[Rfam]
RNA sequence: GUGUCUUGACCUCAUCCUGGCUCUUCCCCUCACCGGAGCUGUGGUGGUGGGGCUUGGGGGUGGACACAGAUCAACUUACCUCUCGUGUUAGGAGGGCUGCCAAAUAUAUUUGCAAACCCUUAAAGGCAAGAGAGGACACC
Numbered sequence: 001g002u003g004u005c006u007u008g009a010c011c012u013c014a015u016c017c018u019g020g021c022u023c024u025u026c027c028c029c030u031c032a033c034c035g036g037a038g039c040u041g042u043g044g045u046g047g048u049g050g051g052g053c054u055u056g057g058g059g060g061u062g063g064a065c066a067c068a069g070a071u072c073a074a075c076u077u078a079c080c081u082c083u084c085g086u087g088u089u090a091g092g093a094g095g096g097c098u099g100c101c102a103a104a105u106a107u108a109u110u111u112g113c114a115a116a117c118c119c120u121u122a123a124a125g126g127c128a129a130g131a132g133a134g135g136a137c138a139c140c
Stems, first nucleotide, its partner, number of pairs: 002066005010059002026052002028049001030047004079135006088125002092121005098115001099113002102111003
Dot-bracket structure: .(((((...((..............(((.((((..........)))).).)).....))..)))))............((((((...((..(((((.(((.(((....))))).).)))))..))....)))))).....

Shown here is a 140-nucleotide RNA from Anas platyrhynchos, a member of the family "Small Cajal body specific RNA 11". A reference for the family is Darzacq et al. (2002), "Cajal body-specific small nuclear RNAs: a novel class of 2'-O-methylation and pseudouridylation guide RNAs", EMBO J. Rfam describes the family as follows. scaRNAs are a specific class of small nuclear RNAs which localise to the Cajal bodies and guide the modification of RNA polymerase II transcribed spliceosomal RNAs U1, U2, U4, U5 and U12. ACA57 belongs to the H/ACA box class of guide RNAs as it has the predicted hairpin-hinge-hairpin-tail structure, conserved H/ACA-box motifs and is found associated with GAR1. ACA57 is predicted to guide the pseudouridylation of the U5 spliceosomal RNA at position U43.